[Rfam]
RNA sequence: AAAGUAAGCCGUCUUAUCGCAGUUAUCUUUCGGGGUGGCUGAGGAAAGUCCGAACAGCAAAGAGCAUCAUGCUACCUAACGGGUAGGGAGUAAUCGGGCGACUGAUUAUUUACAGCCAGUGCAACAGAAAAUAAACUACCGCAGCAAUGCGGAAAAGGUGAAAAGGUAGGGUAAGAGCCUACCGCUCGGUUGGCAACAAACGAGGCACGGUAAACCUCAUGAGCUGAAAGACCAAAUAAACCGACAGCCCCUCGGGGCUAAGGCUGCUCGUCUGAGUCGGAGGGUAGGUUGAUAGAGGCAAGUAGUGAUACUUGUUCGAGAUAAAUGAUAAGAACCGUUAUUAGUUAUCGGUUAUCGGUUAUUUGUUAUUAGUUUUGAUUGUUAGUGAUUAGACCUGUAACCAAUAACCAAUCAACUGAUAACUGAUUUCAGUACAGAAUUCGGCUUAUAGGCUUAUUUUUUCU
Dot-bracket structure: ((((((((((((((((((.(((((((((....)))))))))....[[[.[[[[[((((...[[[[.((((((((((.....)))))(((((((((((....)))))))))).)((...((((.............((.(((((....)))))...)).......((((((.......))))))(((((.(((....))).)))).)...))..)))))))))))))...((((.......(((((...............((((.]]]]))))..)))))......))))......((((((((....))))))))..........)))))))..........................................................................................................]]]]]]]].).))))))))))....

Shown here is a 464-nucleotide RNA from Emticicia aquatilis, a member of the family "Bacterial RNase P class A". It scores 248 bits against the family's covariance model.